[Rfam]
Record summary:
The family of this 134-nucleotide sequence from Oryctolagus cuniculus is "Small nucleolar RNA SNORA42/SNORA80 family". From the family's description: The members of this family belong to the H/ACA class of snoRNAs that guide the sites of modification of uridines to pseudouridines. Human ACA42 (SNORA42) was cloned from HeLa cells by immunoprecipitation with anti-GAR1 antibody. Its is predicted to guide the pseudouridylation of residues U109 and U572 of 18S rRNA. ACA42 shares the same host gene with ACA26, ACA46, ACA50. This family also includes mammalian snoRNA ACA67 (SNORA80) which was identified by computational screening and its expression in mouse experimentally verified by Northern blot and primer extension analysis.
RNA sequence: CCAUGGGUUUGGAUUUAUGGCAAGCCCAUUGCCCUGGGCCUCUCAUAGUGCCCCAUGCCAGAGCAAACUAUGGCCCCAAAUCAUUGCCUGGCCUCUGUCCAUAGGUUGUUGGCAUUGAAGCAGGUUGAACAGUA
Number, nucleotide and partner (000 for none) at each position: 001c000002c057003a056004u055005g053006g052007g051008u050009u000010u000011g000012g000013a000014u000015u048016u047017a046018u045019g044020g043021c000022a041023a000024g039025c037026c036027c000028a000029u000030u000031g000032c000033c000034c000035u000036g026037g025038g000039c024040c000041u022042c000043u020044c019045a018046u017047a016048g015049u000050g008051c007052c006053c005054c000055a004056u003057g002058c000059c000060a000061g000062a000063g000064c000065a000066a000067a000068c000069u000070a000071u127072g126073g125074c124075c123076c000077c000078a000079a000080a000081u000082c117083a116084u000085u000086g000087c112088c111089u108090g107091g106092c105093c104094u103095c000096u000097g000098u000099c000100c000101a000102u000103a094104g093105g092106u091107u090108g089109u000110u000111g088112g087113c000114a000115u000116u083117g082118a000119a000120g000121c000122a000123g075124g074125u073126u072127g071128a000129a000130c000131a000132g000133u000134a000

Overview
It scores 119 bits against the family's covariance model. Rfam 15.1 lists 1,535 matches to the family in 183 species.